[Rfam]
RNA sequence: GAAUUCCAACUCAGGAAAGGAGUGAAGCCGCUCCACCUGAAAUCGAGUCUUGGGUGUGUGGAGGUAACGACACAUACUAAGCGUAGACAGAGCGAAAUCAGGCCGUAACGCAAGUGAAGCGAUUGAGCCUCGUUAGUACGUCCGGAGGCCGACAAGGUCGAAUACUUGGAAGGCAAUAGUAGGUUUCCGAUAUAGGCGAGGGAACCGGAGACUCCGGCGGGGUCUAAGAGCA
Numbered sequence: 001g002a003a004u005u006c007c008a009a010c011u012c013a014g015g016a017a018a019g020g021a022g023u024g025a026a027g028c029c030g031c032u033c034c035a036c037c038u039g040a041a042a043u044c045g046a047g048u049c050u051u052g053g054g055u056g057u058g059u060g061g062a063g064g065u066a067a068c069g070a071c072a073c074a075u076a077c078u079a080a081g082c083g084u085a086g087a088c089a090g091a092g093c094g095a096a097a098u099c100a101g102g103c104c105g106u107a108a109c110g111c112a113a114g115u116g117a118a119g120c121g122a123u124u125g126a127g128c129c130u131c132g133u134u135a136g137u138a139c140g141u142c143c144g145g146a147g148g149c150c151g152a153c154a155a156g157g158u159c160g161a162a163u164a165c166u167u168g169g170a171a172g173g174c175a176a177u178a179g180u181a182g183g184u185u186u187c188c189g190a191u192a193u194a195g196g197c198g199a200g201g202g203a204a205c206c207g208g209a210g211a212c213u214c215c216g217g218c219g220g221g222g223u224c225u226a227a228g229a230g231c232a
Base pairs, nucleotide, nucleotide: 012039013038014037015036019034020033021032022031023199029196043091044090047088048087049086050085051083052082053078054077055076056075057074058073059072060071063068124226125224127223128222129221130220131219132218142217143216144215145214146213147212148174149173150172153168154167155166156165180208182206183205184204185203186202187201188200
Dot-bracket structure: ...........((((...(((([.....[.)))).))))...((..((((((((((((((..(....)..))))))))...)).)))).))................................((.((((((.........(((((((((..((((........))))...))).....(.(((((((.......]..]))))))).)...))))))))))))).)......